[Rfam]
RNA sequence: AUUUCAAAGCUUGUUUUAGUGCAUUAUGCUAUUUUAC
Numbered sequence: 001a002u003u004u005c006a007a008a009g010c011u012u013g014u015u016u017u018a019g020u021g022c023a024u025u026a027u028g029c030u031a032u033u034u035u036a037c
Base pairs, nucleotide, nucleotide: 006033007032009029010028012023013022014021

The family of this 37-nucleotide sequence from Methanococcus aeolicus is "CRISPR RNA direct repeat element". Rfam's curators put it in the seed alignment. Its family is annotated with defense response in the Gene Ontology.